Source information: The family of this 172-nucleotide sequence from Pseudomonas sp. 21C1 is "Group II catalytic intron D1-D4-3". A search with the family's covariance model found it, with a score of 115 bits. About the family: Group II introns are found in rRNA, tRNA and mRNA of organelles in fungi, plants and protists, and also in mRNA in bacteria. The source organism's lineage runs through Bacteria, Pseudomonadota, Gammaproteobacteria, Pseudomonadales and Pseudomonas. Its family is annotated with Group II intron splicing in the Gene Ontology. The base pairs follow the family's consensus structure.
RNA sequence: AUGAGGGCGACUGAGUGUGGGAAGGAAGCGUGAAUCGAAGCCAUGAGCCGAUGUACAAGAAUCGGAUACAAGGCGGAGCCGAUCAGGGCGAGCGGGCAUAAAAUCGCGAAGCUCUUGUGGUCAAGGAUCAGGCUGCGUAAAUCCGGCGGUUGUGUGGUGAAGGAUUGCGUUC
Numbered sequence: 001a002u003g004a005g006g007g008c009g010a011c012u013g014a015g016u017g018u019g020g021g022a023a024g025g026a027a028g029c030g031u032g033a034a035u036c037g038a039a040g041c042c043a044u045g046a047g048c049c050g051a052u053g054u055a056c057a058a059g060a061a062u063c064g065g066a067u068a069c070a071a072g073g074c075g076g077a078g079c080c081g082a083u084c085a086g087g088g089c090g091a092g093c094g095g096g097c098a099u100a101a102a103a104u105c106g107c108g109a110a111g112c113u114c115u116u117g118u119g120g121u122c123a124a125g126g127a128u129c130a131g132g133c134u135g136c137g138u139a140a141a142u143c144c145g146g147c148g149g150u151u152g153u154g155u156g157g158u159g160a161a162g163g164a165u166u167g168c169g170u171u172c
Stems, first nucleotide, its partner, number of pairs: 001016002005012002028172001030170003035164002040158006046151005062146006073138003077134004081128001083126001086114004092107004